[Rfam]
RNA sequence: GGACUGCGAUGAUACAGAAGGUUGCCAAGAGUUGGGGAAUUUCUGUUGAGAAUGUCCGUUCAUGAAUCGGGCGACAU
Numbered sequence: 001g002g003a004c005u006g007c008g009a010u011g012a013u014a015c016a017g018a019a020g021g022u023u024g025c026c027a028a029g030a031g032u033u034g035g036g037g038a039a040u041u042u043c044u045g046u047u048g049a050g051a052a053u054g055u056c057c058g059u060u061c062a063u064g065a066a067u068c069g070g071g072c073g074a075c076a077u
Stems, first nucleotide, its partner, number of pairs: 014046003019042003025036002028033001053076004058072004
RNA: S10-Clostridia ribosomal protein leader
Organism: Caminicella sporogenes